[Rfam]
Notes:
This 92-nucleotide sequence from Juglans regia belongs to the Rfam family "small nucleolar RNA snoR117". The source organism's lineage runs through Eukaryota, Viridiplantae, Tracheophyta, Fagales and Juglans. The literature on the family includes a 2009 paper in Nucleic Acids Res by Chen and Wu, "Mining small RNA sequencing data: a new approach to identify small nucleolar RNAs in Arabidopsis". Rfam 15.1 lists 419 matches to the family in 211 species.
RNA sequence: GGCCUAUGAUGAUUAAAUUUGUCCGUACCAUCUGAGAUAUUCUCCACAAAAGAUUAUCGUUGAUGUAUCUAUAUUUGCCAUUUCUGAGGCCU
Numbered sequence: 001g002g003c004c005u006a007u008g009a010u011g012a013u014u015a016a017a018u019u020u021g022u023c024c025g026u027a028c029c030a031u032c033u034g035a036g037a038u039a040u041u042c043u044c045c046a047c048a049a050a051a052g053a054u055u056a057u058c059g060u061u062g063a064u065g066u067a068u069c070u071a072u073a074u075u076u077g078c079c080a081u082u083u084c085u086g087a088g089g090c091c092u
Stems, first nucleotide, its partner, number of pairs: 001091004